RNA sequence: UAGAAUGGAAGUUCGAUUAAGAGCGCGACGUCCUGUCGCAACAUCGAACGACCUACAUCCUGUAGG
Numbered sequence: 001u002a003g004a005a006u007g008g009a010a011g012u013u014c015g016a017u018u019a020a021g022a023g024c025g026c027g028a029c030g031u032c033c034u035g036u037c038g039c040a041a042c043a044u045c046g047a048a049c050g051a052c053c054u055a056c057a058u059c060c061u062g063u064a065g066g
Stems, first nucleotide, its partner, number of pairs: 011049007025039005052066005
RNA: Bacillaceae-1 RNA
Organism: Aquibacillus koreensis